[Rfam]
RNA: Bacterial large subunit ribosomal RNA, nucleotides 2042 to 2628
Organism: Johnsonella ignava
RNA sequence: CCCGCGCCAGGACGGAAAGACCCCAUGGAGCUUUACUCCAGCUUGGUGCUGGGACACGGUAGUGCCCGUACAGGAUAGGUGGGAGGCUAUGAAGCAUUGGCGCCAGCCGAUGCAGAGCCGAUGUUGGGAUACCACCCCCGCACUACCGGGUUUCUAACGCAGAGCCGUAAACCGGCAUGCGGACAAUGCCAGGCGGGGAGUUUGACUGGGGCGGUCGCCUCCGAAAGGGUAUCGGAGGCGCCCAAAGGUCCCCUCAGGAUGGACGGAAACCAUCCGCAGAGUGCAAAGGCAGAAGGGGGCCUGACUGCGACAGCGACGGCUGGAGCAGGCAGGAAACUGGGGCUUAGUGAUCCGGUGGCAGAAAGUGGGAUUGCCAUCGCUCAACGGAUAAAAGCUACCCUGGGGAUAACAGGCUUAUCACUCCCAAGAGUUCACAUCGACGGAGUGGUUUGGCACCUCGAUGUCGGCUCAUCGCAUCCCGGGGCUGUAGCAGGUCCCAAGGGUUGGGCUGUUCGCCCAUUAAAGCGGUACGCGAGCUGGGUUCAGAACGUCGUGAGACAGUUCGGUCCCUAUCCGGCGUGGGCGCA
Numbered sequence: 001c002c003c004g005c006g007c008c009a010g011g012a013c014g015g016a017a018a019g020a021c022c023c024c025a026u027g028g029a030g031c032u033u034u035a036c037u038c039c040a041g042c043u044u045g046g047u048g049c050u051g052g053g054a055c056a057c058g059g060u061a062g063u064g065c066c067c068g069u070a071c072a073g074g075a076u077a078g079g080u081g082g083g084a085g086g087c088u089a090u091g092a093a094g095c096a097u098u099g100g101c102g103c104c105a106g107c108c109g110a111u112g113c114a115g116a117g118c119c120g121a122u123g124u125u126g127g128g129a130u131a132c133c134a135c136c137c138c139c140g141c142a143c144u145a146c147c148g149g150g151u152u153u154c155u156a157a158c159g160c161a162g163a164g165c166c167g168u169a170a171a172c173c174g175g176c177a178u179g180c181g182g183a184c185a186a187u188g189c190c191a192g193g194c195g196g197g198g199a200g201u202u203u204g205a206c207u208g209g210g211g212c213g214g215u216c217g218c219c220u221c222c223g224a225a226a227g228g229g230u231a232u233c234g235g236a237g238g239c240g241c242c243c244a245a246a247g248g249u250c251c252c253c254u255c256a257g258g259a260u261g262g263a264c265g266g267a268a269a270c271c272a273u274c275c276g277c278a279g280a281g282u283g284c285a286a287a288g289g290c291a292g293a294a295g296g297g298g299g300c301c302u303g304a305c306u307g308c309g310a311c312a313g314c315g316a317c318g319g320c321u322g323g324a325g326c327a328g329g330c331a332g333g334a335a336a337c338u339g340g341g342g343c344u345u346a347g348u349g350a351u352c353c354g355g356u357g358g359c360a361g362a363a364a365g366u367g368g369g370a371u372u373g374c375c376a377u378c379g380c381u382c383a384a385c386g387g388a389u390a391a392a393a394g395c396u397a398c399c400c401u402g403g404g405g406a407u408a409a410c411a412g413g414c415u416u417a418u419c420a421c422u423c424c425c426a427a428g429a430g431u432u433c434a435c436a437u438c439g440a441c442g443g444a445g446u447g448g449u450u451u452g453g454c455a456c457c458u459c460g461a462u463g464u465c466g467g468c469u470c471a472u473c474g475c476a477u478c479c480c481g482g483g484g485c486u487g488u489a490g491c492a493g494g495u496c497c498c499a500a501g502g503g504u505u506g507g508g509c510u511g512u513u514c515g516c517c518c519a520u521u522a523a524a525g526c527g528g529u530a531c532g533c534g535a536g537c538u539g540g541g542u543u544c545a546g547a548a549c550g551u552c553g554u555g556a557g558a559c560a561g562u563u564c565g566g567u568c569c570c571u572a573u574c575c576g577g578c579g580u581g582g583g584c585g586c587a
Stems, first nucleotide, its partner, number of pairs: 001583008010575003014570002022404004027400002029396005035201004042193007051154005057148009068137001078136005085119003094113008158181003162178001164176004204216004217239006240385001242342002248300006254280002257275006281290002305328004311322003330339003353379007361372002413454003417451001418448007428438002465540001466538004470532001471529005478503002481498006505519005546564004550559003